Shown here is a 179-nucleotide sequence from Rossellomorea aquimaris, a member of the family "Lysine riboswitch aptamer". The match comes from Rfam's covariance-model search (125 bits).
RNA sequence: AGUGGUGAUAGAGGUGCGAACUUCAAGAGUACAGGCAAAGAGGAGUAUGGGCUCCGGUGAGAUGUCUGGGAAGGGGAGAUUCGCCGAAGUGGUAUUAGACUCAUACUAAUUCCGCUGGUCCUGCGUUUAAGAAAUGCAGGAUUGUCAAGAUGAAUCAAUCUUGGAGAGCUAUCUCACAA
Number, nucleotide and partner (000 for none) at each position: 001a000002g000003u000004g000005g000006u000007g173008a172009u171010a170011g169012a000013g000014g000015u000016g084017c083018g082019a081020a080021c078022u077023u076024c075025a000026a000027g000028a000029g000030u000031a000032c068033a067034g066035g065036c064037a063038a000039a000040g000041a000042g000043g000044a000045g000046u000047a000048u000049g000050g000051g000052c000053u000054c000055c000056g000057g000058u000059g000060a000061g000062a000063u037064g036065u035066c034067u033068g032069g000070g000071a000072a000073g000074g000075g024076g023077a022078g021079a000080u020081u019082c018083g017084c016085c000086g000087a000088a116089g115090u114091g113092g112093u000094a110095u109096u108097a107098g106099a000100c000101u000102c000103a000104u000105a000106c098107u097108a096109a095110u094111u000112c092113c091114g090115c089116u088117g143118g142119u141120c140121c139122u138123g137124c136125g135126u134127u133128u000129a000130a000131g000132a000133a127134a126135u125136g124137c123138a122139g121140g120141a119142u118143u117144g000145u164146c163147a162148a161149g160150a159151u158152g000153a000154a000155u000156c000157a000158a151159u150160c149161u148162u147163g146164g145165a000166g000167a000168g000169c011170u010171a009172u008173c007174u000175c000176a000177c000178a000179a000
Source information:
Pairs were carried over by alignment from the consensus structure, which is taken from published work. Rfam links the family to the GO term lysine biosynthetic process.